[Rfam]
RNA sequence: AUCCUAGUGCACGGGCAAUACACGUAUCAGUGAGGAGACAUCCGAGAUCGUGUUUUUGCUAGUUGAAAACUAUUUUUUUGACCGCUCUAGUUGGCCUUCGGGUCGGCUAGGAAUUUUUGAAAACAAACUGCCCUGGCUCAUAUUUG
Numbered sequence: 001a002u003c004c005u006a007g008u009g010c011a012c013g014g015g016c017a018a019u020a021c022a023c024g025u026a027u028c029a030g031u032g033a034g035g036a037g038a039c040a041u042c043c044g045a046g047a048u049c050g051u052g053u054u055u056u057u058g059c060u061a062g063u064u065g066a067a068a069a070c071u072a073u074u075u076u077u078u079u080g081a082c083c084g085c086u087c088u089a090g091u092u093g094g095c096c097u098u099c100g101g102g103u104c105g106g107c108u109a110g111g112a113a114u115u116u117u118u119g120a121a122a123a124c125a126a127a128c129u130g131c132c133c134u135g136g137c138u139c140a141u142a143u144u145u146g
Stems, first nucleotide, its partner, number of pairs: 020053005026048003034043003086111011124146004
RNA: U4 spliceosomal RNA
Organism: Aspergillus flavus